[Rfam]
RNA sequence: AGAGGUUGCAAGUCCUAGGCCAUAGCAGAAGUGCUCACAUCGCAGUCUGUCAGAUUCCAGCAAAUCUGUGAAUUCUGUU
Numbered sequence: 001a002g003a004g005g006u007u008g009c010a011a012g013u014c015c016u017a018g019g020c021c022a023u024a025g026c027a028g029a030a031g032u033g034c035u036c037a038c039a040u041c042g043c044a045g046u047c048u049g050u051c052a053g054a055u056u057c058c059a060g061c062a063a064a065u066c067u068g069u070g071a072a073u074u075c076u077g078u079u
Base pairs, nucleotide, nucleotide: 018047019046020045024079025078026077027076028075029074030073031043032042033041051068052067053066054065055064056063